[Rfam]
RNA sequence: UUAUUGGUUUCUCGCAGCAGAAUUCAGCUUACUUAGUCAGGGCCGGAAGGAAGCAGCUUGGGUUGAAUUUCUGGGUGCCGGGAGUCGCUGGUAAUACC
Numbered sequence: 001u002u003a004u005u006g007g008u009u010u011c012u013c014g015c016a017g018c019a020g021a022a023u024u025c026a027g028c029u030u031a032c033u034u035a036g037u038c039a040g041g042g043c044c045g046g047a048a049g050g051a052a053g054c055a056g057c058u059u060g061g062g063u064u065g066a067a068u069u070u071c072u073g074g075g076u077g078c079c080g081g082g083a084g085u086c087g088c089u090g091g092u093a094a095u096a097c098c
Stems, first nucleotide, its partner, number of pairs: 004091005009084006015075001018073005023067007033060001035058003043050002